[Rfam]
RNA sequence: GCCUCCUGGGCCUGCUGAGCUGACAGCAGUGCCAUCAAACAUACUGGCUCAGCUCAGCAGGAACAGGAG
Numbered sequence: 001g002c003c004u005c006c007u008g009g010g011c012c013u014g015c016u017g018a019g020c021u022g023a024c025a026g027c028a029g030u031g032c033c034a035u036c037a038a039a040c041a042u043a044c045u046g047g048c049u050c051a052g053c054u055c056a057g058c059a060g061g062a063a064c065a066g067g068a069g
Stems, first nucleotide, its partner, number of pairs: 003069004008064001011061003015057009027046004
The family of this 69-nucleotide sequence from Oryzias sinensis is "mir-24 microRNA precursor family".
The literature on the family includes a 2001 paper in Science by Lagos-Quintana et al., "Identification of novel genes coding for small expressed RNAs".
The source organism's lineage runs through Eukaryota, Craniata, Euteleostomi, Ovalentaria and Oryzias.
Pairs were carried over by alignment from the consensus structure, which was predicted with RNAalifold.
Rfam's curators write: This family represents the microRNA (miRNA) mir-24 family. miRNAs are transcribed as ~70nt precursors (modelled here) and subsequently processed by the Dicer enzyme to give a ~22nt product. In this case the mature sequence comes from the 3' arm of the precursor. The extents of the hairpin precursors are not generally known and are estimated based on hairpin prediction.